A member of the RNA family "FdoG-1 5' UTR thermometer" from Yersinia pseudotuberculosis, 190 nucleotides long. Located upstream of fdoG-1 gene which is involved in metabolic processes. Rfam classes the family as an RNA thermoregulator. Pairs were carried over by alignment from the consensus structure.

RNA sequence: GUGGUAACAUUCACAUUAAGAAUGGUGCGGCUAUGUAUUAUCUAACAUAGAAAUUCAUUCCACACAGAAAAAGCGUGAUAUCGCAUGAGCGAUUUUAGCGCCUCCCAUUUUAUUGAGGGAAGCGUGAACUGGAAAUAAUGUGACAAUGAAGGAGAUACCCAUGCAGGUCAGCAGAAGGCAGUUCUUUAAG
Number, nucleotide and partner (000 for none) at each position: 001g031002u030003g000004g028005u027006a026007a000008c024009a023010u022011u021012c020013a000014c000015a000016u000017u000018a000019a000020g012021a011022a010023u009024g008025g000026u006027g005028c004029g000030g002031c001032u049033a048034u047035g046036u045037a000038u000039u000040a000041u000042c000043u000044a000045a036046c035047a034048u033049a032050g060051a059052a058053a000054u000055u000056c000057a000058u052059u051060c050061c077062a076063c075064a000065c073066a000067g000068a000069a000070a000071a000072a000073g065074c000075g063076u062077g061078a000079u000080a093081u092082c091083g090084c089085a000086u000087g000088a000089g084090c083091g082092a081093u080094u000095u000096u000097a000098g125099c124100g123101c122102c000103u120104c119105c118106c117107a000108u000109u000110u000111u000112a000113u000114u000115g000116a000117g106118g105119g104120a103121a000122g101123c100124g099125u098126g184127a183128a182129c181130u180131g179132g000133a000134a000135a000136u000137a000138a000139u000140g000141u170142g169143a168144c167145a000146a000147u000148g000149a000150a000151g160152g159153a000154g000155a000156u000157a000158c000159c152160c151161a000162u000163g000164c000165a000166g000167g144168u143169c142170a141171g000172c000173a000174g000175a000176a000177g000178g000179c131180a130181g129182u128183u127184c126185u000186u000187u000188a000189a000190g000